[Rfam]
RNA sequence: CGUAUAGGAGACGAGGUGUGUGGGUAAAGUUCCUUCUUAUGUUGGGCCUAACCCAGGAAAGUCCCCGGGCCAUUAUCCGCAGAGAUGUGGGCUUGGAAACAAGUGAACUCUGAUUUCCCGCCCCAAGGCAUGGGACAUGUGAGGAGCCCAUCGGCGGUGAAAUUGGAGCUCCGUUUGGCCGAUAAAACAGUUAUACACCUGAGGUCGCUGACCUUAACCGAACGGCUUAUGAUCUCCUAUAC
Numbered sequence: 001c002g003u004a005u006a007g008g009a010g011a012c013g014a015g016g017u018g019u020g021u022g023g024g025u026a027a028a029g030u031u032c033c034u035u036c037u038u039a040u041g042u043u044g045g046g047c048c049u050a051a052c053c054c055a056g057g058a059a060a061g062u063c064c065c066c067g068g069g070c071c072a073u074u075a076u077c078c079g080c081a082g083a084g085a086u087g088u089g090g091g092c093u094u095g096g097a098a099a100c101a102a103g104u105g106a107a108c109u110c111u112g113a114u115u116u117c118c119c120g121c122c123c124c125a126a127g128g129c130a131u132g133g134g135a136c137a138u139g140u141g142a143g144g145a146g147c148c149c150a151u152c153g154g155c156g157g158u159g160a161a162a163u164u165g166g167a168g169c170u171c172c173g174u175u176u177g178g179c180c181g182a183u184a185a186a187a188c189a190g191u192u193a194u195a196c197a198c199c200u201g202a203g204g205u206c207g208c209u210g211a212c213c214u215u216a217a218c219c220g221a222a223c224g225g226c227u228u229a230u231g232a233u234c235u236c237c238u239a240u241a242c
Base pairs, nucleotide, nucleotide: 002242003241004240005239006238007237008236009235010234011233014200015199016198017197018196019195022054023053024052025051059228060227061226063225066224078089079088080087081086092103093102094101095100105172107170108168109167110166111165112164113163114162115161116160117159118157119156120155121154202214203213204212205211206210
RNA: RNase MRP
Organism: Dorcoceras hygrometricum